[Rfam]
Nucleotides: 428
Base pairs, nucleotide, nucleotide: 024055025053026052027051028050029049035042036041065072066071076103077102078101079100080099086094087093106325107324108323109322113152114151115150116149117148119146120143121142123140124138125137126136127135157266158265160262161261162260167257168256170250171249172248173247174246176245177244180239181238182237183236184235185234189205191204192203193202194201210214217227218226275296276295277294278293279292280291281290302319303318304317305316306315360367361366383394384393385392386391
Number, partner (000 for none) and nucleotide at each position: 001000c002000g003000a004000c005000c006000u007000c008000a009000g010000a011000u012000c013000g014000g015000a016000c017000g018000c019000g020000a021000c022000u023000a024055c025053c026052c027051g028050c029049u030000g031000a032000a033000c034000u035042u036041a037000a038000g039000c040000a041036u042035a043000u044000c045000a046000g047000u048000a049029a050028g051027c052026g053025g054000a055024g056000g057000a058000a059000a060000a061000g062000a063000a064000a065072c066071u067000a068000a069000c070000u071066a072065g073000g074000a075000u076103u077102c078101c079100c080099c081000g082000a083000g084000u085000a086094a087093c088000g089000g090000c091000g092000a093087g094086u095000g096000a097000a098000a099080g100079g101078g102077g103076a104000g105000a106325a107324g108323c109322c110000c111000a112000g113152c114151g115150c116149c117148g118000a119146a120143g121142c122000c123140c124138g125137c126136g127135g128000c129000c130000c131000c132000c133000g134000g135127u136126c137125g138124c139000a140123g141000u142121g143120c144000a145000a146119u147000g148117u149116g150115g151114c152113g153000u154000u155000u156000c157266g158265g159000u160262g161261g162260c163000g164000g165000c166000u167257c168256g169000c170250c171249g172248c173247g174246c175000c176245g177244a178000c179000c180239u181238c182237g183236g184235c185234a186000c187000g188000a189205g190000u191204a192203c193202c194201u195000c196000u197000g198000a199000a200000a201194g202193g203192g204191u205189c206000c207000g208000c209000c210214c211000g212000c213000a214210g215000c216000g217227g218226g219000u220000g221000u222000c223000a224000g225000g226218c227217c228000u229000c230000u231000a232000c233000u234185u235184g236183c237182c238181g239180a240000a241000u242000g243000g244177u245176c246174g247173c248172g249171c250170g251000c252000g253000g254000c255000c256168c257167g258000u259000c260162g261161u262160u263000c264000a265158u266157c267000g268000c269000g270000g271000a272000g273000u274000c275296g276295g277294g278293u279292u280291g281290c282000u283000u284000g285000a286000g287000a288000g289000u290281g291280c292279a293278g294277c295276c296275c297000a298000a299000a300000g301000u302319g303318g304317g305316u306315g307000g308000u309000a310000a311000g312000c313000u314000c315306c316305a317304u318303c319302u320000a321000a322109g323108g324107c325106u326000a327000a328000a329000u330000a331000c332000c333000u334000a335000g336000u337000g338000c339000g340000a341000g342000a343000c344000c345000g346000a347000u348000a349000g350000c351000a352000a353000a354000c355000a356000a357000g358000u359000a360367c361366c362000g363000u364000g365000a366361g367360g368000g369000a370000a371000a372000g373000u374000u375000g376000c377000a378000a379000a380000g381000a382000a383394c384393u385392u386391u387000g388000a389000a390000a391386a392385g393384a394383g395000a396000g397000u398000u399000c400000a401000a402000g403000a404000g405000u406000a407000c408000g409000u410000g411000a412000a413000a414000c415000c416000g417000u418000u419000c420000a421000g422000a423000g424000g425000c426000a427000a428000a

Shown here is a 428-nucleotide part of an RNA from Bugula neritina, a member of the family "Eukaryotic large subunit ribosomal RNA". Lineage of the source: Eukaryota > Bilateria > Spiralia > Lophotrochozoa > Bugula. The literature on the family includes a 2001 paper in Science by Yusupov et al., "Crystal structure of the ribosome at 5.5 A resolution". The match comes from Rfam's covariance-model search (2694 bits).